[Rfam]
RNA sequence: AUUCACUGGUUUCUCUUCAGAUCGAAUAAAUCUUUCGCCUUUUACUAAAGAUUUCCGUGGAGAGGAACAAAUCAGCUUCAAACUAAUUUUUUGGAAGGAAUAGAUGGUGUCAUU
Numbered sequence: 001a002u003u004c005a006c007u008g009g010u011u012u013c014u015c016u017u018c019a020g021a022u023c024g025a026a027u028a029a030a031u032c033u034u035u036c037g038c039c040u041u042u043u044a045c046u047a048a049a050g051a052u053u054u055c056c057g058u059g060g061a062g063a064g065g066a067a068c069a070a071a072u073c074a075g076c077u078u079c080a081a082a083c084u085a086a087u088u089u090u091u092u093g094g095a096a097g098g099a100a101u102a103g104a105u106g107g108u109g110u111c112a113u114u
Base pairs, nucleotide, nucleotide: 006075009068010067011066012065013064014063015062016061017060018059019058028054029053030052031051032050033049034048035047099114100113101112
Dot-bracket structure: .....(..(((((((((((........((((((((...........))))))))...)))))))))))......).......................(((..........)))
Shown here is a 114-nucleotide RNA from Pongo abelii, a member of the family "U5 spliceosomal RNA". The base pairs follow the family's consensus structure, which is taken from published work. By type it is a spliceosomal small nuclear RNA. Its family is annotated with U5 snRNP and spliceosomal tri-snRNP complex assembly in the Gene Ontology. NCBI's taxonomy places the organism under Eukaryota, Sarcopterygii, Amniota, Ponginae, Pongo.